RNA sequence: GUGUGAUAAUGACAACUUGACUCUAAACUCGUCAUUGAGAGGAGCAGGUUUGAUGCUCAAACACAC
Numbered sequence: 001g002u003g004u005g006a007u008a009a010u011g012a013c014a015a016c017u018u019g020a021c022u023c024u025a026a027a028c029u030c031g032u033c034a035u036u037g038a039g040a041g042g043a044g045c046a047g048g049u050u051u052g053a054u055g056c057u058c059a060a061a062c063a064c065a066c
Stems, first nucleotide, its partner, number of pairs: 001066005014050006022042002029038003